[Rfam]
RNA sequence: UUUUACACAUGUUUUGAUGCUGUAGAUACGAUUUGAGAGCUUUUUGUAACCUUUAAUCAUAAGUGGGGGAGUUCGUUUGUGGUUAAACUCGUUACAACUCAAUACGCGGUUGCGAUUGUUCGCAAUCAUUUUUUAAACCCAAGAGAAGUAGUGCAAAUAAUAUGA
Numbered sequence: 001u002u003u004u005a006c007a008c009a010u011g012u013u014u015u016g017a018u019g020c021u022g023u024a025g026a027u028a029c030g031a032u033u034u035g036a037g038a039g040c041u042u043u044u045u046g047u048a049a050c051c052u053u054u055a056a057u058c059a060u061a062a063g064u065g066g067g068g069g070a071g072u073u074c075g076u077u078u079g080u081g082g083u084u085a086a087a088c089u090c091g092u093u094a095c096a097a098c099u100c101a102a103u104a105c106g107c108g109g110u111u112g113c114g115a116u117u118g119u120u121c122g123c124a125a126u127c128a129u130u131u132u133u134u135a136a137a138c139c140c141a142a143g144a145g146a147a148g149u150a151g152u153g154c155a156a157a158u159a160a161u162a163u164g165a
Stems, first nucleotide, its partner, number of pairs: 001019001003017003033102005045096006052087016106154002108127008130148005